[Rfam]
RNA sequence: GUCAUUGUAAUAGUAAUUGAACUUAGUACGAGAGGAACCGUUCAUUCACGUAAUUGGUAUUUACACCUGUUCGAGAGGACAAUGGUGUGAAGCUACCACGUGCUGGAUUAUGGCUGAACGCCUCUAAGCCAGAAUCCGUGCUAGAACAAUGAUUUUGUCCCGUGCAUCUCAAAGUUGCGUUGAAAUAGAGCUUUAUGCUCGUGAACCAUCAUCUGUGGGUAAAGCUGGCCAAGUGGAAAGACUUGGUUAGUUUCCUACAUAAAUCAUUGAAAAUAUGUGCGGGGUAAAUCCCUUGGUUGAGUCCAUUUUUAGACCUGCUGAGGUCUCCAGAAAUAUAUUUGUUGCUACGAUCCACUGAGGUUCAGCCCUUGUUCUAAAGAUUUGU
Number, nucleotide and partner (000 for none) at each position: 001g153002u152003c151004a150005u149006u148007g147008u146009a000010a000011u143012a142013g141014u140015a000016a046017u000018u044019g043020a042021a041022c040023u000024u000025a000026g000027u000028a000029c000030g000031a000032g000033a000034g000035g000036a000037a000038c000039c000040g022041u021042u020043c019044a018045u000046u016047c102048a101049c100050g099051u098052a000053a000054u000055u095056g094057g093058u000059a000060u000061u000062u089063a088064c087065a086066c085067c000068u081069g080070u079071u078072c077073g000074a000075g000076a000077g072078g071079a070080c069081a068082a000083u000084g000085g066086u065087g064088u063089g062090a000091a000092g000093c057094u056095a055096c000097c000098a051099c050100g049101u048102g047103c000104u138105g137106g136107a000108u000109u000110a000111u131112g130113g129114c128115u127116g000117a000118a000119c000120g000121c000122c000123u000124c000125u000126a000127a115128g114129c113130c112131a111132g000133a000134a000135u000136c106137c105138g104139u000140g014141c013142u012143a011144g000145a000146a008147c007148a006149a005150u004151g003152a002153u001154u000155u000156u000157g000158u000159c283160c282161c281162g280163u279164g278165c277166a000167u000168c000169u000170c000171a000172a000173a000174g000175u000176u000177g000178c000179g000180u000181u000182g000183a000184a000185a000186u000187a000188g000189a000190g000191c000192u000193u000194u000195a000196u000197g000198c000199u000200c000201g000202u000203g000204a000205a000206c000207c000208a000209u000210c000211a000212u000213c000214u000215g000216u000217g000218g000219g000220u000221a000222a000223a000224g000225c000226u000227g000228g000229c000230c000231a000232a000233g000234u000235g000236g000237a000238a000239a000240g000241a000242c000243u000244u000245g000246g000247u000248u000249a000250g000251u000252u000253u000254c000255c000256u000257a000258c000259a000260u000261a000262a000263a000264u000265c000266a000267u000268u000269g000270a000271a000272a000273a000274u000275a000276u000277g165278u164279g163280c162281g161282g160283g159284g000285u000286a000287a383288a382289u000290c000291c379292c000293u000294u000295g000296g304297u000298u000299g000300a000301g000302u000303c000304c296305a000306u000307u000308u000309u000310u000311a375312g374313a373314c000315c371316u000317g361318c360319u000320g000321a356322g352323g351324u350325c349326u000327c000328c000329a346330g345331a000332a343333a342334u341335a000336u000337a000338u000339u000340u000341g334342u333343u332344g000345c330346u329347a000348c000349g325350a324351u323352c322353c000354a000355c000356u321357g000358a000359g000360g318361u317362u000363c000364a000365g000366c000367c000368c000369u000370u000371g315372u000373u313374c312375u311376a000377a000378a000379g291380a000381u000382u288383u287384g000385u000
Overview:
The family of this 385-nucleotide part of an RNA from Puccinia triticina is "Eukaryotic large subunit ribosomal RNA". Pairs were carried over by alignment from the consensus structure, which is taken from published work. Rfam's curators put it in the seed alignment. The family has 88 seed sequences and 107,465 matches in Rfam 15.1. The source organism's lineage runs through Eukaryota, Fungi, Basidiomycota, Pucciniaceae and Puccinia triticina.